Background:
A member of the RNA family "Small nucleolar RNA snoR104" from Oryza meyeriana, 129 nucleotides long. On this family, see Marker et al., Curr Biol 2002: "Experimental RNomics: identification of 140 candidates for small non-messenger RNAs in the plant Arabidopsis thaliana". The family's consensus secondary structure was predicted with WAR. The organism belongs to Oryza meyeriana, within Eukaryota. By type it is an H/ACA-box small nucleolar RNA. The match comes from Rfam's covariance-model search (61 bits).

[Rfam]
Nucleotides: 129
Base pairs, nucleotide, nucleotide: 003029005027006025007024008023009022010021011020067122069120078108079107080106081105082104083103084102085101087099088098089097
Number, partner (000 for none) and nucleotide at each position: 001000a002000g003029g004000u005027a006025g007024c008023a009022u010021u011020u012000a013000a014000a015000a016000g017000a018000g019000a020011a021010g022009a023008u024007g025006c026000c027005u028000a029003c030000g031000c032000u033000a034000u035000a036000c037000a038000u039000u040000u041000g042000c043000u044000a045000u046000a047000c048000a049000u050000u051000c052000u053000u054000c055000c056000u057000g058000g059000a060000g061000u062000a063000a064000a065000g066000u067122u068000g069120u070000c071000a072000c073000u074000u075000c076000c077000u078108g079107c080106u081105u082104g083103u084102g085101g086000c087099a088098u089097u090000g091000u092000u093000a094000g095000c096000a097089a098088a099087u100000c101085u102084u103083g104082c105081a106080a107079g108078u109000c110000u111000c112000a113000a114000a115000u116000g117000a118000c119000a120069a121000g122067a123000c124000a125000g126000c127000u128000g129000c